[Rfam]
RNA sequence: AAAGUAGCAAUAAUCAAUUUCUUGUUCUAUUAAGAAGACAAGAUUGCUCCUUUCCUU
Numbered sequence: 001a002a003a004g005u006a007g008c009a010a011u012a013a014u015c016a017a018u019u020u021c022u023u024g025u026u027c028u029a030u031u032a033a034g035a036a037g038a039c040a041a042g043a044u045u046g047c048u049c050c051u052u053u054c055c056u057u
Stems, first nucleotide, its partner, number of pairs: 001053004006048006014040001019036006